[Rfam]
RNA: DUF805b RNA
RNA sequence: CAGGCGAAAUCCGAAAAGCCUUACAAAGAGUAGGAA
Number, nucleotide and partner (000 for none) at each position: 001c000002a021003g020004g019005c018006g000007a000008a000009a000010u035011c034012c033013g000014a000015a000016a000017a000018g005019c004020c003021u002022u000023a000024c000025a000026a000027a000028g000029a000030g000031u000032a000033g012034g011035a010036a000